Rfam assigns this 90-nucleotide RNA sequence from Gracilibacillus boraciitolerans to the family "SAM riboswitch aptamer (S box leader)".
Rfam links the family to the GO term regulation of gene expression.
The family's consensus secondary structure is taken from published work.

[Rfam]
RNA sequence: AUCUUAUCAAGAGAGGUUUAGGGACUGGCCCGAUGAUACCUCAGCAACCAGCAAGUGAUUGUAUGGUGCUAAUUCCAGAGAAGAUAAGAA
Numbered sequence: 001a002u003c004u005u006a007u008c009a010a011g012a013g014a015g016g017u018u019u020a021g022g023g024a025c026u027g028g029c030c031c032g033a034u035g036a037u038a039c040c041u042c043a044g045c046a047a048c049c050a051g052c053a054a055g056u057g058a059u060u061g062u063a064u065g066g067u068g069c070u071a072a073u074u075c076c077a078g079a080g081a082a083g084a085u086a087a088g089a090a
Stems, first nucleotide, its partner, number of pairs: 002089007013042005021031003025078004043070004048066002050062001053059001074082001